[Rfam]
RNA sequence: AUGGACGGAAGAGAGCGUCCUUCAGUCCACUCACGGGCGGUGCUAGGAUCGAAUUAGCUGCCGACUCAUUCAUCCACUUGCCGAGCAAAGUUAUUUGCCGAGGAGCUUAGCAGGUGAGUGAAUGAAGCGGGAGGUAAAGUCUUUGAUCUCGCACCGUCGUUGCUUGGACUGAAGGGUGCUCCCUCCUCCUCUCUA
Numbered sequence: 001a002u003g004g005a006c007g008g009a010a011g012a013g014a015g016c017g018u019c020c021u022u023c024a025g026u027c028c029a030c031u032c033a034c035g036g037g038c039g040g041u042g043c044u045a046g047g048a049u050c051g052a053a054u055u056a057g058c059u060g061c062c063g064a065c066u067c068a069u070u071c072a073u074c075c076a077c078u079u080g081c082c083g084a085g086c087a088a089a090g091u092u093a094u095u096u097g098c099c100g101a102g103g104a105g106c107u108u109a110g111c112a113g114g115u116g117a118g119u120g121a122a123u124g125a126a127g128c129g130g131g132a133g134g135u136a137a138a139g140u141c142u143u144u145g146a147u148c149u150c151g152c153a154c155c156g157u158c159g160u161u162g163c164u165u166g167g168a169c170u171g172a173a174g175g176g177u178g179c180u181c182c183c184u185c186c187u188c189c190u191c192u193c194u195a
Stems, first nucleotide, its partner, number of pairs: 013181008023171007036158001058133002061130003067124004075116001
Shown here is a 195-nucleotide sequence from Aegilops tauschii, a member of the family "MIR159 microRNA precursor family". Its family is annotated with miRNA-mediated post-transcriptional gene silencing and RISC complex in the Gene Ontology. A search with the family's covariance model found it, with a score of 132 bits. On this family, see Jones-Rhoades and Bartel, Mol Cell 2004: "Computational identification of plant microRNAs and their targets, including a stress-induced miRNA".